[Rfam]
RNA sequence: UGCAGGGAGAUGAUGAUGCUUACAAGCACAUAUCCAAAUCAUUUAAUGUGGACAUAUUUUUCACUGAAUCUCCCUGCU
Numbered sequence: 001u002g003c004a005g006g007g008a009g010a011u012g013a014u015g016a017u018g019c020u021u022a023c024a025a026g027c028a029c030a031u032a033u034c035c036a037a038a039u040c041a042u043u044u045a046a047u048g049u050g051g052a053c054a055u056a057u058u059u060u061u062c063a064c065u066g067a068a069u070c071u072c073c074c075u076g077c078u
Stems, first nucleotide, its partner, number of pairs: 002077005008071004
Shown here is a 78-nucleotide RNA from Oreochromis aureus, a member of the family "Small nucleolar RNA SNORD121A".
It is annotated as a C/D-box small nucleolar RNA.
Rfam links the family to the GO terms RNA processing and nucleolus.
The literature on the family includes a 2006 paper in Nucleic Acids Res by Yang et al., "snoSeeker: an advanced computational package for screening of guide and orphan snoRNA genes in the human genome".